[Rfam]
RNA sequence: UAGGGGGGACGGGGCUCGGUGCCCCUCCCCAAGCCCAGGGUAACCUUUAAAGUAGAGGGAGA
Numbered sequence: 001u002a003g004g005g006g007g008g009a010c011g012g013g014g015c016u017c018g019g020u021g022c023c024c025c026u027c028c029c030c031a032a033g034c035c036c037a038g039g040g041u042a043a044c045c046u047u048u049a050a051a052g053u054a055g056a057g058g059g060a061g062a
Stems, first nucleotide, its partner, number of pairs: 008041001010039001012036004016031001018029002023059005

The record is a 62-nucleotide sequence from Heterocephalus glaber, which matches "Gag/pol translational readthrough site" in Rfam.
Rfam classes the family as a cis-regulatory element.
Lineage of the source: Eukaryota > Teleostomi > Dipnotetrapodomorpha > Theria > Heterocephalus.
The family has 8 seed sequences and 3,368 matches in Rfam 15.1.